The family of this 91-nucleotide RNA from Nicotiana attenuata is "Small nucleolar RNA snoR109". Its family is annotated with RNA processing and nucleolus in the Gene Ontology. It is annotated as an H/ACA-box small nucleolar RNA. Taxonomically the source falls in Nicotiana (Eukaryota, Euphyllophyta, Magnoliopsida, lamiids). The base pairs follow the family's consensus structure, which was predicted with WAR.
[Rfam]
RNA sequence: UGGCUGUAGCUACAUGAAUUCAUAUUGAGAAGUUUACUGGCCGGUUGUUGUUCUGCUGUCGACAUAUCUGCUUACCGAACUUCCUACAUUU
Numbered sequence: 001u002g003g004c005u006g007u008a009g010c011u012a013c014a015u016g017a018a019u020u021c022a023u024a025u026u027g028a029g030a031a032g033u034u035u036a037c038u039g040g041c042c043g044g045u046u047g048u049u050g051u052u053c054u055g056c057u058g059u060c061g062a063c064a065u066a067u068c069u070g071c072u073u074a075c076c077g078a079a080c081u082u083c084c085u086a087c088a089u090u091u
Stems, first nucleotide, its partner, number of pairs: 027085001029083006039072003043068003047063004